Small nucleolar RNA SNORD24: a 106-nucleotide RNA from Citrus unshiu. The family's RNA type in Rfam is C/D-box small nucleolar RNA. For this family Rfam cites "U24, a novel intron-encoded small nucleolar RNA with two 12 nt long, phylogenetically conserved complementarities to 28S rRNA" (Qu et al., Nucleic Acids Res, 1995). Lineage of the source: Eukaryota > Viridiplantae > Tracheophyta > Rutaceae > Citrus. The base pairs follow the family's consensus structure, which was predicted with PFOLD.
[Rfam]
RNA sequence: GGCCGGUGAUGUAAUAACAAAUAUUUGCUACUCUUGAUUGGGGGAUUUGUUUUUCAAACUAAUUCUUCACUGAUGAUUAUUCACAUCCACCAAGAUCUCUGAGGCC
Numbered sequence: 001g002g003c004c005g006g007u008g009a010u011g012u013a014a015u016a017a018c019a020a021a022u023a024u025u026u027g028c029u030a031c032u033c034u035u036g037a038u039u040g041g042g043g044g045a046u047u048u049g050u051u052u053u054u055c056a057a058a059c060u061a062a063u064u065c066u067u068c069a070c071u072g073a074u075g076a077u078u079a080u081u082c083a084c085a086u087c088c089a090c091c092a093a094g095a096u097c098u099c100u101g102a103g104g105c106c
Stems, first nucleotide, its partner, number of pairs: 001106004